[Rfam]
RNA sequence: AUGCUCAUAGGCGAUGGAGUUCGCCAUUAACCACUGGAUAACAGUUAAUGACUCCUGCGAAACA
Numbered sequence: 001a002u003g004c005u006c007a008u009a010g011g012c013g014a015u016g017g018a019g020u021u022c023g024c025c026a027u028u029a030a031c032c033a034c035u036g037g038a039u040a041a042c043a044g045u046u047a048a049u050g051a052c053u054c055c056u057g058c059g060a061a062a063c064a
Stems, first nucleotide, its partner, number of pairs: 010025004016055006033045004
Shown here is a 64-nucleotide RNA from Alkaliphilus metalliredigens, a member of the family "Fluoride riboswitch aptamer (crcB RNA motif)". Rfam's curators put it in the seed alignment.